[Rfam]
RNA: PhotoRC-II RNA
RNA sequence: UUGAUCAGAUUUGCUCCCGUUUAACCGAGACCUAUGGGAGGAUAAAAUACGUCUCUCAUAUCCACCAGUGAAGGGAUUGGUGGAAAUAAAGUAUCGC
Dot-bracket structure: .............(((((((......[[[[[..)))))))..........]]]]]......(((((((........)))))))..............
Numbered sequence: 001u002u003g004a005u006c007a008g009a010u011u012u013g014c015u016c017c018c019g020u021u022u023a024a025c026c027g028a029g030a031c032c033u034a035u036g037g038g039a040g041g042a043u044a045a046a047a048u049a050c051g052u053c054u055c056u057c058a059u060a061u062c063c064a065c066c067a068g069u070g071a072a073g074g075g076a077u078u079g080g081u082g083g084a085a086a087u088a089a090a091g092u093a094u095c096g097c
Stems, first nucleotide, its partner, number of pairs: 014040007027055005062083007